[Rfam]
Shown here is a 67-nucleotide RNA from Bombyx mori, a member of the family "mir-2774 microRNA precursor family".
The source organism's lineage runs through Eukaryota, Pancrustacea, Neoptera, Neolepidoptera and Bombyx.

RNA sequence: AAAACAUUCGGACCGUCGGUCUACCGAGCAAUAUCACCCUCUCGGUAGAAGAUAGACCCUUCAACGU
Numbered sequence: 001a002a003a004a005c006a007u008u009c010g011g012a013c014c015g016u017c018g019g020u021c022u023a024c025c026g027a028g029c030a031a032u033a034u035c036a037c038c039c040u041c042u043c044g045g046u047a048g049a050a051g052a053u054a055g056a057c058c059c060u061u062c063a064a065c066g067u
Base pairs, nucleotide, nucleotide: 010058011057015053016052017051020049021048022047023046024045025044026043027042028041

Record summary:
It scores 65 bits against the family's covariance model.